[Rfam]
RNA sequence: GACGGUGGGCCCGUCGAAGUCGCCAUACAGGUGGAGAUUUCAAACCACCUUAAGGUGCUGUAGUCAAAAGCUAUGGUAUUGAGCGUUAAGGAAAAGGCAAUCAAGAAUUGUCAGGU
Numbered sequence: 001g002a003c004g005g006u007g008g009g010c011c012c013g014u015c016g017a018a019g020u021c022g023c024c025a026u027a028c029a030g031g032u033g034g035a036g037a038u039u040u041c042a043a044a045c046c047a048c049c050u051u052a053a054g055g056u057g058c059u060g061u062a063g064u065c066a067a068a069a070g071c072u073a074u075g076g077u078a079u080u081g082a083g084c085g086u087u088a089a090g091g092a093a094a095a096g097g098c099a100a101u102c103a104a105g106a107a108u109u110g111u112c113a114g115g116u
Stems, first nucleotide, its partner, number of pairs: 001015005016041006023034004046115001048091006054080002057077003061073004096112006
A member of the RNA family "Group II catalytic intron D1-D4-2" from Bacillus thuringiensis, 116 nucleotides long. Rfam's curators write: Group II introns are found in rRNA, tRNA and mRNA of organelles in fungi, plants and protists, and also in mRNA in bacteria. The source organism's lineage runs through Bacteria, Bacillati, Bacillaceae, Bacillus and Bacillus thuringiensis.